[Rfam]
RNA sequence: GGAACCUUUAAAUCCAGUCCCGUGAGGCUGGCAAGGGCAACGGCUCCACAAGAUAUCAGGCAUGGGGGAAGAGGAUUCUUGCGCCAUGCUGACUGCAGCGCUCCUUGUCACCGGGACAGGGAGCGUUUUUUCA
Numbered sequence: 001g002g003a004a005c006c007u008u009u010a011a012a013u014c015c016a017g018u019c020c021c022g023u024g025a026g027g028c029u030g031g032c033a034a035g036g037g038c039a040a041c042g043g044c045u046c047c048a049c050a051a052g053a054u055a056u057c058a059g060g061c062a063u064g065g066g067g068g069a070a071g072a073g074g075a076u077u078c079u080u081g082c083g084c085c086a087u088g089c090u091g092a093c094u095g096c097a098g099c100g101c102u103c104c105u106u107g108u109c110a111c112c113g114g115g116a117c118a119g120g121g122a123g124c125g126u127u128u129u130u131u132c133a
Base pairs, nucleotide, nucleotide: 005036006035007034008033014031015030016029017028018027019026059090060089061088062087063086064085065084067082069080070079071078072077097127098126099125100124101123102122103121104120105119106118107117108116109115

The family of this 133-nucleotide RNA sequence from Brevibacillus sp. SYP-B805 is "PyrR binding site". About the family: This family represents the PyrR binding site and terminator structure. This RNA structure is found upstream of a variety of genes involved in pyrimidine biosynthesis and transport. The alignment also includes a portion of the antiterminator structure. By type it is a cis-regulatory element. Lineage of the source: Bacteria > Bacilli > Caryophanales > Paenibacillaceae > Brevibacillus. Pairs were carried over by alignment from the consensus structure, which is taken from published work.